[Rfam]
Annotation: Shown here is a 70-nucleotide sequence from Nannospalax galili, a member of the family "Small nucleolar RNA SNORD63". Rfam 15.1 lists 795 matches to the family in 549 species. NCBI's taxonomy places the organism under Eukaryota, Opisthokonta, Bilateria, Spalacidae, Nannospalax. About the family: snoRNA U63 is found in both humans and mice.

RNA sequence: GUGCAGUGAUGUAUUUGUCAACAUGCUGUUCUGAAGGAAAAUAUGUGGUGACUUAUUAGGACUCAGCACA
Numbered sequence: 001g002u003g004c005a006g007u008g009a010u011g012u013a014u015u016u017g018u019c020a021a022c023a024u025g026c027u028g029u030u031c032u033g034a035a036g037g038a039a040a041a042u043a044u045g046u047g048g049u050g051a052c053u054u055a056u057u058a059g060g061a062c063u064c065a066g067c068a069c070a
Stems, first nucleotide, its partner, number of pairs: 001069004

About this RNA:
It is annotated as a C/D-box small nucleolar RNA. A reference for the family is Galardi et al. (2002), "Purified box C/D snoRNPs are able to reproduce site-specific 2'-O-methylation of target RNA in vitro", Mol Cell Biol.